A member of the RNA family "DUF3800-III RNA", 98 nucleotides long. The base pairs follow the family's consensus structure, which is taken from published work. Rfam classes the family as a small RNA.

RNA sequence: AAAGCAGCAGAGUAAGUCCAAGGUAGGCCGGGUCGCUGUAAAGUGACCUAAUUUCUACCGAAAGGUAGAUAAAUCGGCCUCUUGGGGUCUGCUGCUUU
Numbered sequence: 001a002a003a004g005c006a007g008c009a010g011a012g013u014a015a016g017u018c019c020a021a022g023g024u025a026g027g028c029c030g031g032g033u034c035g036c037u038g039u040a041a042a043g044u045g046a047c048c049u050a051a052u053u054u055c056u057a058c059c060g061a062a063a064g065g066u067a068g069a070u071a072a073a074u075c076g077g078c079c080u081c082u083u084g085g086g087g088u089c090u091g092c093u094g095c096u097u098u
Stems, first nucleotide, its partner, number of pairs: 001098007010090001012088001018085005026079003033046005054069006